[Rfam]
RNA: mir-172 microRNA precursor family
Organism: Durio zibethinus
RNA sequence: UUUAUUGCCGAUGCAGCAUCAUCAAGAUUCUCAGUUUCAUAGAACUUUGGCAAUAAAAUUAGAGAGGGAAGAAGGGGGGGGGGGGGGUAAGAGAGAGUCAUCAUCAGUGUUAUUAUCACACAAACCUUGCAUUUGCAUGUGAAUCUUGAUGAUGCUACACCCGCAAACAA
Numbered sequence: 001u002u003u004a005u006u007g008c009c010g011a012u013g014c015a016g017c018a019u020c021a022u023c024a025a026g027a028u029u030c031u032c033a034g035u036u037u038c039a040u041a042g043a044a045c046u047u048u049g050g051c052a053a054u055a056a057a058a059u060u061a062g063a064g065a066g067g068g069a070a071g072a073a074g075g076g077g078g079g080g081g082g083g084g085g086g087g088u089a090a091g092a093g094a095g096a097g098u099c100a101u102c103a104u105c106a107g108u109g110u111u112a113u114u115a116u117c118a119c120a121c122a123a124a125c126c127u128u129g130c131a132u133u134u135g136c137a138u139g140u141g142a143a144u145c146u147u148g149a150u151g152a153u154g155c156u157a158c159a160c161c162c163g164c165a166a167a168c169a170a
Stems, first nucleotide, its partner, number of pairs: 010161001012159002015156016032139002